Notes:
This 71-nucleotide RNA sequence from Microcebus murinus belongs to the Rfam family "Small nucleolar RNA U2-30". The literature on the family includes a 2004 paper in Curr Biol by Tycowski et al., "Guide RNAs with 5' Caps and Novel Box C/D snoRNA-like Domains for Modification of snRNAs in Metazoa". Rfam links the family to the GO terms nucleolus and RNA processing. The sequence is in the family's curated seed alignment.

[Rfam]
RNA sequence: GAGCGAUGAUGAAAAGGCUUUUACUAUGGACCUUUAUAACUAUGAAAGUUUCUACACUUGACCUAAGUUCA
Numbered sequence: 001g002a003g004c005g006a007u008g009a010u011g012a013a014a015a016g017g018c019u020u021u022u023a024c025u026a027u028g029g030a031c032c033u034u035u036a037u038a039a040c041u042a043u044g045a046a047a048g049u050u051u052c053u054a055c056a057c058u059u060g061a062c063c064u065a066a067g068u069u070c071a
Stems, first nucleotide, its partner, number of pairs: 001070004013035005019030002